RNA sequence: UACGCACAUGACUAUAUGCCGCUUUGGAUAAAAGUGUCUGCCAAAUGGCAUAUU
Numbered sequence: 001u002a003c004g005c006a007c008a009u010g011a012c013u014a015u016a017u018g019c020c021g022c023u024u025u026g027g028a029u030a031a032a033a034g035u036g037u038c039u040g041c042c043a044a045a046u047g048g049c050a051u052a053u054u
Stems, first nucleotide, its partner, number of pairs: 013043001015040002020036006
RNA: UnaL2 LINE 3' element